RNA sequence: UCCUCGCUCAAAGAAUCGCAUUCAAAGCUCACACACAGAGAGCAGUCUUCACGACUCUCUUUUCCCCCCUCAGCUUUGGGAGAAAGUCCCCGGACAUCCUGACUGUUUAAACGUCCUCUUGUAGGGCCCAGUCAGGCAAUGCGGAAACGCGCCGCCAUAGAAGCAAUUCGAUAGCGGCUUAUACGCCCUAUUCUCCUCCUAGUGUUUGUCUCUGUACCCGAACACUUGCUGCCACCUUCUGGUGUGGCUUGUGGGUAACAAUGGUUGGUGCAGGACAGUGCUGGAGAGGGGGGUUUUAUUUGGGUUGCCUUUCGUCGUGUUUGGAUAGUCAUGCGAUUGCCCUUCCUAUAUCUUUCUUGGAACCGACCUCUUACGUCUGAAAUAUGUUGGGGAGCGUUAGUCCAGGAAAUAUUUAGGGGGUAACUCAAUGGGGCUCAUUCUUGAGGCGAGG
Numbered sequence: 001u002c003c004u005c006g007c008u009c010a011a012a013g014a015a016u017c018g019c020a021u022u023c024a025a026a027g028c029u030c031a032c033a034c035a036c037a038g039a040g041a042g043c044a045g046u047c048u049u050c051a052c053g054a055c056u057c058u059c060u061u062u063u064c065c066c067c068c069c070u071c072a073g074c075u076u077u078g079g080g081a082g083a084a085a086g087u088c089c090c091c092g093g094a095c096a097u098c099c100u101g102a103c104u105g106u107u108u109a110a111a112c113g114u115c116c117u118c119u120u121g122u123a124g125g126g127c128c129c130a131g132u133c134a135g136g137c138a139a140u141g142c143g144g145a146a147a148c149g150c151g152c153c154g155c156c157a158u159a160g161a162a163g164c165a166a167u168u169c170g171a172u173a174g175c176g177g178c179u180u181a182u183a184c185g186c187c188c189u190a191u192u193c194u195c196c197u198c199c200u201a202g203u204g205u206u207u208g209u210c211u212c213u214g215u216a217c218c219c220g221a222a223c224a225c226u227u228g229c230u231g232c233c234a235c236c237u238u239c240u241g242g243u244g245u246g247g248c249u250u251g252u253g254g255g256u257a258a259c260a261a262u263g264g265u266u267g268g269u270g271c272a273g274g275a276c277a278g279u280g281c282u283g284g285a286g287a288g289g290g291g292g293g294u295u296u297u298a299u300u301u302g303g304g305u306u307g308c309c310u311u312u313c314g315u316c317g318u319g320u321u322u323g324g325a326u327a328g329u330c331a332u333g334c335g336a337u338u339g340c341c342c343u344u345c346c347u348a349u350a351u352c353u354u355u356c357u358u359g360g361a362a363c364c365g366a367c368c369u370c371u372u373a374c375g376u377c378u379g380a381a382a383u384a385u386g387u388u389g390g391g392g393a394g395c396g397u398u399a400g401u402c403c404a405g406g407a408a409a410u411a412u413u414u415a416g417g418g419g420g421u422a423a424c425u426c427a428a429u430g431g432g433g434c435u436c437a438u439u440c441u442u443g444a445g446g447c448g449a450g451g
Base pairs, nucleotide, nucleotide: 002451003450004449005448006447007446008444009443010442011441014338015337016336017335018334019333022080023078024077025076026075027074028073040061041060042059085435086434088433089432090431091430157172158171160169161168162167174309181301185294186293187292188291195289196288197287198286272282273281275279340420341419342418343417344416
Rfam assigns this 451-nucleotide RNA from Aspergillus luchuensis to the family "RNase MRP". By type it is a ribozyme. From the family's description: RNase MRP is an enzymatically active ribonucleoprotein with two distinct roles in eukaryotes. It scores 100 bits against the family's covariance model.